[Rfam]
RNA sequence: UCUAGCAGCGAUGACACAUUUGCCCUCACUGACAGAGCUGCUCAGUAGUGAGAACCUCACCAUGUGCUCAGAUGAGCUUAAGCCAGA
Numbered sequence: 001u002c003u004a005g006c007a008g009c010g011a012u013g014a015c016a017c018a019u020u021u022g023c024c025c026u027c028a029c030u031g032a033c034a035g036a037g038c039u040g041c042u043c044a045g046u047a048g049u050g051a052g053a054a055c056c057u058c059a060c061c062a063u064g065u066g067c068u069c070a071g072a073u074g075a076g077c078u079u080a081a082g083c084c085a086g087a
Base pairs, nucleotide, nucleotide: 001087002086003085005083006082

Notes:
Rfam assigns this 87-nucleotide RNA from Gopherus agassizii to the family "Small nucleolar RNA SNORD103/SNORD85". By type it is a C/D-box small nucleolar RNA. It scores 45 bits against the family's covariance model. The family has 41 seed sequences and 1,349 matches in Rfam 15.1. Rfam links the family to the GO terms RNA processing and nucleolus.